Description: This 336-nucleotide part of an RNA from Prosthecomicrobium pneumaticum belongs to the Rfam family "Bacterial large subunit ribosomal RNA". A search with the family's covariance model found it, with a score of 2746 bits. Lineage of the source: Bacteria > Pseudomonadati > Alphaproteobacteria > Hyphomicrobiales > Prosthecomicrobium. The family's consensus secondary structure is taken from published work. Gene Ontology terms of the family: ribosome and structural constituent of ribosome.
RNA sequence: UGAGAGAAUGGUGCUGAAGGAACUCGGCAAAUUGCCUCCGUAACUUCGGGAGAAGGAGGCCCGGUUCCUGGGCAACCAGGGAUCGGGGGCACAGACUAGGGGGUAGCGACUGUUUACCUAAAACACAGGGCUCUGCGAAGCCGUAAGGCGACGUAUAGGGUCUGACGCCUGCCCGGUGCCGGAAGGUUAAGAGGAGGGGUGCAAGCUCUGAAUCGAAGCCCCGGUAAACGGCGGCCGUAACUAUAACGGUCCUAAGGUAGCGAAAUUCCUUGUCGGGUAAGUUCCGACCUGCACGAAUGGCGUAACGACUUCCCCGCUGUCUCCAGCACCUACUCA
Number, nucleotide and partner (000 for none) at each position: 001u336002g335003a334004g333005a000006g000007a000008a000009u000010g330011g329012u328013g327014c326015u325016g324017a000018a322019g321020g320021a000022a000023c000024u000025c000026g000027g000028c000029a000030a000031a000032u000033u000034g000035c059036c058037u057038c056039c055040g000041u000042a000043a000044c049045u000046u000047c000048g000049g044050g000051a000052g000053a000054a000055g039056g038057a037058g036059g035060c087061c086062c085063g084064g083065u082066u081067c080068c079069u078070g077071g076072g000073c000074a000075a000076c071077c070078a069079g068080g067081g066082a065083u064084c063085g062086g061087g060088g092089g000090c000091a000092c088093a000094g000095a000096c000097u000098a000099g000100g315101g314102g313103g312104u000105a310106g309107c307108g306109a000110c000111u125112g124113u123114u000115u000116a000117c000118c000119u000120a000121a000122a000123a113124c112125a111126c000127a000128g163129g162130g161131c160132u159133c158134u157135g156136c153137g000138a000139a000140g149141c148142c147143g000144u000145a000146a000147g142148g141149c140150g000151a000152c000153g136154u000155a000156u135157a134158g133159g132160g131161u130162c129163u128164g000165a000166c302167g301168c300169c299170u000171g232172c231173c230174c000175g000176g229177u228178g225179c224180c223181g222182g221183a000184a000185g220186g219187u218188u000189a000190a000191g214192a213193g000194g000195a000196g209197g208198g207199g206200u205201g000202c000203a000204a000205g200206c199207u198208c197209u196210g000211a000212a000213u192214c191215g000216a000217a000218g187219c186220c185221c182222c181223g180224g179225u178226a000227a000228a177229c176230g173231g172232c171233g251234g250235c249236c248237g247238u246239a000240a000241c000242u000243a000244u000245a000246a238247c237248g236249g235250u234251c233252c256253u000254a000255a000256g252257g000258u000259a000260g000261c000262g289263a000264a000265a000266u000267u000268c000269c000270u000271u000272g288273u287274c286275g285276g284277g283278u000279a000280a000281g000282u000283u277284c276285c275286g274287a273288c272289c262290u000291g000292c000293a000294c000295g000296a000297a000298u000299g169300g168301c167302g166303u000304a000305a000306c108307g107308a000309c106310u105311u000312c103313c102314c101315c100316g000317c000318u000319g000320u020321c019322u018323c000324c016325a015326g014327c013328a012329c011330c010331u000332a000333c004334u003335c002336a001